[Rfam]
RNA sequence: CCAAUGCGUUCACUGAAUGAGCACGAGUGUGUAACAACCACAAGCACGCUGUGGUAAUAUCGCCGCGUCGCGUAUCAGCAUAACAACAGUGACAUUAGCGCUCCGCCGUUUUGGCGAGGAGCGCCAUUUGAACAAUGUGACAAUCGAGAGUAAAGGAGACCCCCAUGCAGGUCAGCAGAAGGCAGUUCUUUAAG
Numbered sequence: 001c002c003a004a005u006g007c008g009u010u011c012a013c014u015g016a017a018u019g020a021g022c023a024c025g026a027g028u029g030u031g032u033a034a035c036a037a038c039c040a041c042a043a044g045c046a047c048g049c050u051g052u053g054g055u056a057a058u059a060u061c062g063c064c065g066c067g068u069c070g071c072g073u074a075u076c077a078g079c080a081u082a083a084c085a086a087c088a089g090u091g092a093c094a095u096u097a098g099c100g101c102u103c104c105g106c107c108g109u110u111u112u113g114g115c116g117a118g119g120a121g122c123g124c125c126a127u128u129u130g131a132a133c134a135a136u137g138u139g140a141c142a143a144u145c146g147a148g149a150g151u152a153a154a155g156g157a158g159a160c161c162c163c164c165a166u167g168c169a170g171g172u173c174a175g176c177a178g179a180a181g182g183c184a185g186u187u188c189u190u191u192a193a194g
Base pairs, nucleotide, nucleotide: 001027005023006022009021010020011019028042029041030040031039044052045051046050053064054063055062067093068092069091070090071089098124099123100122101121103119104118106116126187128185129184130183138174139173140172141171155164156163

Source information:
Rfam assigns this 194-nucleotide sequence from Oryza sativa to the family "FdoG-1 5' UTR thermometer". The pairing is the family consensus, mapped onto this sequence. Located upstream of fdoG-1 gene which is involved in metabolic processes. The organism belongs to Oryza sativa, within Eukaryota.